[Rfam]
RNA sequence: CAUAGGACUUCAUCCUAUGCUAAAUUAAAUCGUUCCUUCGGAACU
Number, nucleotide and partner (000 for none) at each position: 001c019002a018003u017004a016005g015006g014007a013008c000009u000010u000011c000012a000013u007014c006015c005016u004017a003018u002019g001020c000021u000022a000023a000024a000025u000026u000027a000028a000029a000030u000031c000032g044033u043034u042035c041036c040037u000038u000039c000040g036041g035042a034043a033044c032045u000
This 45-nucleotide RNA from Soonwooa buanensis belongs to the Rfam family "Acido-Lenti-1 RNA". The family has 87 seed sequences and 2,607 matches in Rfam 15.1. The organism belongs to Soonwooa, within Bacteria. Rfam classes the family as a small RNA. It scores 41 bits against the family's covariance model. The base pairs follow the family's consensus structure, which is taken from published work.